[Rfam]
RNA sequence: CCUGCCGAGGAGCGCUGCGACCCGAAAUCACGCCGGGCCAGGCUCGGCAACCGAACAACGGCGCUCGCAAACC
Number, nucleotide and partner (000 for none) at each position: 001c000002c000003u049004g048005c047006c046007g045008a044009g000010g000011a000012g000013c000014g000015c000016u000017g000018c000019g000020a000021c037022c036023c035024g034025a000026a000027a000028u000029c000030a000031c000032g000033c000034c024035g023036g022037g021038c000039c000040a000041g000042g000043c000044u008045c007046g006047g005048c004049a003050a000051c000052c000053g000054a000055a000056c000057a000058a000059c000060g000061g000062c000063g000064c000065u000066c000067g000068c000069a000070a000071a000072c000073c000

Overview:
Shown here is a 73-nucleotide sequence from Azoarcus olearius, a member of the family "SAH (S-adenosyl-L-homocysteine) riboswitch aptamer". The sequence is in the family's curated seed alignment.